Annotation:
This 77-nucleotide RNA sequence from Sinocyclocheilus anshuiensis belongs to the Rfam family "mir-17 microRNA precursor family".

RNA sequence: GACGUAGUGUCAAAGUGCUUACAGUGCAGGUAGUUCUGUAAAAUCUACUGCAGUGGAGGCACUUCAAGCUCUACUUU
Numbered sequence: 001g002a003c004g005u006a007g008u009g010u011c012a013a014a015g016u017g018c019u020u021a022c023a024g025u026g027c028a029g030g031u032a033g034u035u036c037u038g039u040a041a042a043a044u045c046u047a048c049u050g051c052a053g054u055g056g057a058g059g060c061a062c063u064u065c066a067a068g069c070u071c072u073a074c075u076u077u
Stems, first nucleotide, its partner, number of pairs: 004074004009069002013064008022055002025052003029049005

Rfam's curators write: This family represents the microRNA (miRNA) precursor mir-17, family, which includes mir-20, mir-91, and mir-103. miRNAs are transcribed as ~70nt precursors (modelled here) and subsequently processed by the Dicer enzyme to give a ~22nt product. Rfam 15.1 lists 4,687 matches to the family in 648 species.